The family of this 100-nucleotide sequence from Paenibacillus sp. FSL R7-0331 is "Purine riboswitch aptamer". Riboswitches are metabolite binding domains within certain messenger RNAs that serve as precision sensors for their corresponding targets. The match comes from Rfam's covariance-model search (70 bits). Taxonomically the source falls in Paenibacillus (Bacteria, Bacillota, Caryophanales, Paenibacillaceae).
[Rfam]
RNA sequence: AUAAAAUAAAGUGAAGCUGUUCGUAUAUCCCCGGAGAUAAGGUUUGGGGGUUUCUACAGGGAACCGUAAAUUCCUGGCUACGAAUAGGGUGCGUUUUGCA
Numbered sequence: 001a002u003a004a005a006a007u008a009a010a011g012u013g014a015a016g017c018u019g020u021u022c023g024u025a026u027a028u029c030c031c032c033g034g035a036g037a038u039a040a041g042g043u044u045u046g047g048g049g050g051u052u053u054c055u056a057c058a059g060g061g062a063a064c065c066g067u068a069a070a071u072u073c074c075u076g077g078c079u080a081c082g083a084a085u086a087g088g089g090u091g092c093g094u095u096u097u098g099c100a
Stems, first nucleotide, its partner, number of pairs: 018086008029049007059075005